[Rfam]
RNA: SAM riboswitch aptamer (S box leader)
Organism: Evansella caseinilytica
RNA sequence: UUCUUAUCCAGAGAGGUGGAGGGACUGGCCCCAUGAAGCCUCGGCAACAGAUUGGAAACAAAACUGUGCCAACUCCUGUAGCAUGAUUUGCUAGAAGAUAAGAA
Numbered sequence: 001u002u003c004u005u006a007u008c009c010a011g012a013g014a015g016g017u018g019g020a021g022g023g024a025c026u027g028g029c030c031c032c033a034u035g036a037a038g039c040c041u042c043g044g045c046a047a048c049a050g051a052u053u054g055g056a057a058a059c060a061a062a063a064c065u066g067u068g069c070c071a072a073c074u075c076c077u078g079u080a081g082c083a084u085g086a087u088u089u090g091c092u093a094g095a096a097g098a099u100a101a102g103a104a
Stems, first nucleotide, its partner, number of pairs: 001104008013042005021031003025078001027076002043070004048066002052062002074096001079093005